Annotation:
This 152-nucleotide sequence from Bradyrhizobium sp. Leo170 belongs to the Rfam family "FMN riboswitch aptamer (RFN element)". Lineage of the source: Bacteria > Pseudomonadati > Alphaproteobacteria > Hyphomicrobiales > Bradyrhizobium. Rfam's curators write: The RFN element is a highly conserved domain that is found frequently in the 5'-untranslated regions of prokaryotic mRNAs that encode for flavin mononucleotide (FMN) biosynthesis and transport proteins. The base pairs follow the family's consensus structure, which is taken from published work.
[Rfam]
RNA sequence: CGAUGUUCUCAGGGCGGGGUGAAAGUCCCCACCGGCGGUAAGGGCCUGAUGGCCCAAGCCCGCGAGCGCCUUUCUCCUCCCAGGAGGAAGGGUCAGCAGAUUCGGUGCAAUUCCGAAGCCGACGGUCAAAGUCCGGAUGAAAGAGAACGGUU
Numbered sequence: 001c002g003a004u005g006u007u008c009u010c011a012g013g014g015c016g017g018g019g020u021g022a023a024a025g026u027c028c029c030c031a032c033c034g035g036c037g038g039u040a041a042g043g044g045c046c047u048g049a050u051g052g053c054c055c056a057a058g059c060c061c062g063c064g065a066g067c068g069c070c071u072u073u074c075u076c077c078u079c080c081c082a083g084g085a086g087g088a089a090g091g092g093u094c095a096g097c098a099g100a101u102u103c104g105g106u107g108c109a110a111u112u113c114c115g116a117a118g119c120c121g122a123c124g125g126u127c128a129a130a131g132u133c134c135g136g137a138u139g140a141a142a143g144a145g146a147a148c149g150g151u152u
Base pairs, nucleotide, nucleotide: 004149005148006147007146008145009144010143017029018028019027031132032131033121034120035063036062037061038060058119059118066097067096101117102116103115104114105113123135124134125133